[Rfam]
RNA sequence: GAGAGGAGGUGCGGUGGUUGCAGAAAGAUAGCUCAGGCGAUCUUUUUGAGGAAAGUCCGGACUCCCCAAAGACCAAACUUGCUGGGUAACUCCCAGUGUAGGUGACUGCGAGGAUAGUGCCACAGAAAAAUACCGCCAAUUUUAAAAGAAUGAAGGAAGAAGGACAAAGAAUGAAGGAUCAUUAAUUCCUCGUUCCUUACUCCUCAAUUCUCAUUCCUUAGUUUGGUAAGGGUGCAAAGGUGUCGGUAAGAGCGCACCAGCAACAUCGAGAGGUGUUGGCUUGGUAAACCCCAGUUGGGAGCAAGGUCGAAGAGAUUAUGGUUGGUCUUUUUCCAAUCUCGCUUUAGGUGAACCGCUUGAGAUGUUUGGUAACAGCCAUCCCAGAUAGAUAACCGCCCUAGAAAGGCUAUGUAGUCUCUUCUAGAACAGAAUCCGGCUUACAACUCUCUCUCUCUA
Numbered sequence: 001g002a003g004a005g006g007a008g009g010u011g012c013g014g015u016g017g018u019u020g021c022a023g024a025a026a027g028a029u030a031g032c033u034c035a036g037g038c039g040a041u042c043u044u045u046u047u048g049a050g051g052a053a054a055g056u057c058c059g060g061a062c063u064c065c066c067c068a069a070a071g072a073c074c075a076a077a078c079u080u081g082c083u084g085g086g087u088a089a090c091u092c093c094c095a096g097u098g099u100a101g102g103u104g105a106c107u108g109c110g111a112g113g114a115u116a117g118u119g120c121c122a123c124a125g126a127a128a129a130a131u132a133c134c135g136c137c138a139a140u141u142u143u144a145a146a147a148g149a150a151u152g153a154a155g156g157a158a159g160a161a162g163g164a165c166a167a168a169g170a171a172u173g174a175a176g177g178a179u180c181a182u183u184a185a186u187u188c189c190u191c192g193u194u195c196c197u198u199a200c201u202c203c204u205c206a207a208u209u210c211u212c213a214u215u216c217c218u219u220a221g222u223u224u225g226g227u228a229a230g231g232g233u234g235c236a237a238a239g240g241u242g243u244c245g246g247u248a249a250g251a252g253c254g255c256a257c258c259a260g261c262a263a264c265a266u267c268g269a270g271a272g273g274u275g276u277u278g279g280c281u282u283g284g285u286a287a288a289c290c291c292c293a294g295u296u297g298g299g300a301g302c303a304a305g306g307u308c309g310a311a312g313a314g315a316u317u318a319u320g321g322u323u324g325g326u327c328u329u330u331u332u333c334c335a336a337u338c339u340c341g342c343u344u345u346a347g348g349u350g351a352a353c354c355g356c357u358u359g360a361g362a363u364g365u366u367u368g369g370u371a372a373c374a375g376c377c378a379u380c381c382c383a384g385a386u387a388g389a390u391a392a393c394c395g396c397c398c399u400a401g402a403a404a405g406g407c408u409a410u411g412u413a414g415u416c417u418c419u420u421c422u423a424g425a426a427c428a429g430a431a432u433c434c435g436g437c438u439u440a441c442a443a444c445u446c447u448c449u450c451u452c453u454c455u456a
Stems, first nucleotide, its partner, number of pairs: 001452006008445003011441001013397007021048009053439003057436005062301004071333002076296003080293002082096005097111001098109004112291002117289002119285003133231002135227005141221002239258004244254002260280001261278007305354003315345001319341002324338003361380004366375003
Rfam assigns this 456-nucleotide RNA from Hyella patelloides to the family "Bacterial RNase P class A". It scores 244 bits against the family's covariance model. Its family is annotated with dimeric ribonuclease P complex, ribonuclease P activity and tRNA processing in the Gene Ontology. The organism belongs to Hyella patelloides, within Bacteria.